Shown here is a 107-nucleotide RNA from Yersinia pestis, a member of the family "Yersinia sRNA 224". Gene Ontology term of the family: response to temperature stimulus. Pairs were carried over by alignment from the consensus structure. By type it is a small RNA.
[Rfam]
RNA sequence: GAGGUUAUUGACAAAAUGUCAGCGACGGAGAGAACAGGCAGAUCGUAAAGACGCCAUAAAUAUAUCCAUGUAGGCUCGAGCCGCGCCCUCCCUGGCGCGGACGCUUU
Numbered sequence: 001g002a003g004g005u006u007a008u009u010g011a012c013a014a015a016a017u018g019u020c021a022g023c024g025a026c027g028g029a030g031a032g033a034a035c036a037g038g039c040a041g042a043u044c045g046u047a048a049a050g051a052c053g054c055c056a057u058a059a060a061u062a063u064a065u066c067c068a069u070g071u072a073g074g075c076u077c078g079a080g081c082c083g084c085g086c087c088c089u090c091c092c093u094g095g096c097g098c099g100g101a102c103g104c105u106u107u
Stems, first nucleotide, its partner, number of pairs: 013107003017103002020028001022026001030077003041066003045063003051057001081100007